RNA: Guanidine-II riboswitch aptamer (mini-ykkC)
Organism: Pseudomonas savastanoi
RNA sequence: AGCAACGGACGACCGUUGCGUAGAUAGAUCAAUAGCGGGACGGCCCGC
Numbered sequence: 001a002g003c004a005a006c007g008g009a010c011g012a013c014c015g016u017u018g019c020g021u022a023g024a025u026a027g028a029u030c031a032a033u034a035g036c037g038g039g040a041c042g043g044c045c046c047g048c
Stems, first nucleotide, its partner, number of pairs: 002019007035048005